A member of the RNA family "terC RNA" from Roseococcus suduntuyensis, 69 nucleotides long.
RNA sequence: GCCGUGGUUCGGGCCCCUCUGGCGCCGAUGUCUCCUUCACGGGGGCCGGCGCGAUGUCGAACCCUCCGU
Numbered sequence: 001g002c003c004g005u006g007g008u009u010c011g012g013g014c015c016c017c018u019c020u021g022g023c024g025c026c027g028a029u030g031u032c033u034c035c036u037u038c039a040c041g042g043g044g045g046c047c048g049g050c051g052c053g054a055u056g057u058c059g060a061a062c063c064c065u066c067c068g069u
Stems, first nucleotide, its partner, number of pairs: 006063007022052006029045001